[Rfam]
RNA sequence: UGGAAACUAGAUACACGUUGUAAUGAAGCUUUGCCAGUCUUAAAUGUAGUUUCCUACAUAAUCUUUGCUUUCUGAUGAUCUUAGUGGUGUCAAGGUUACACUGAGGACAGAUAUGGAGCAGACAUGA
Numbered sequence: 001u002g003g004a005a006a007c008u009a010g011a012u013a014c015a016c017g018u019u020g021u022a023a024u025g026a027a028g029c030u031u032u033g034c035c036a037g038u039c040u041u042a043a044a045u046g047u048a049g050u051u052u053c054c055u056a057c058a059u060a061a062u063c064u065u066u067g068c069u070u071u072c073u074g075a076u077g078a079u080c081u082u083a084g085u086g087g088u089g090u091c092a093a094g095g096u097u098a099c100a101c102u103g104a105g106g107a108c109a110g111a112u113a114u115g116g117a118g119c120a121g122a123c124a125u126g127a
Stems, first nucleotide, its partner, number of pairs: 002054006015041001017039001020034004065121007079106003084101003
RNA: Small Cajal body specific RNA 8